[Rfam]
RNA sequence: UUUGGAUCAAUGAUGUGAGAAUAUAAACUGCGUUAUCUUCCUGAGAAGGGCAUAAAUAAAAUGUCCUUAUUAGAUGACAAAUUAAAGUACUGAGAUCCAAU
Number, nucleotide and partner (000 for none) at each position: 001u000002u100003u099004g098005g097006a096007u095008c000009a000010a000011u000012g000013a000014u000015g000016u000017g000018a000019g000020a000021a000022u000023a000024u000025a000026a000027a000028c000029u000030g000031c000032g000033u000034u000035a000036u000037c000038u000039u000040c000041c000042u000043g000044a000045g000046a000047a000048g000049g000050g000051c000052a000053u000054a000055a000056a000057u000058a000059a000060a000061a000062u000063g000064u000065c000066c000067u000068u000069a000070u000071u000072a000073g000074a000075u000076g000077a000078c000079a000080a000081a000082u000083u000084a000085a000086a000087g000088u000089a000090c000091u000092g000093a000094g000095a007096u006097c005098c004099a003100a002101u000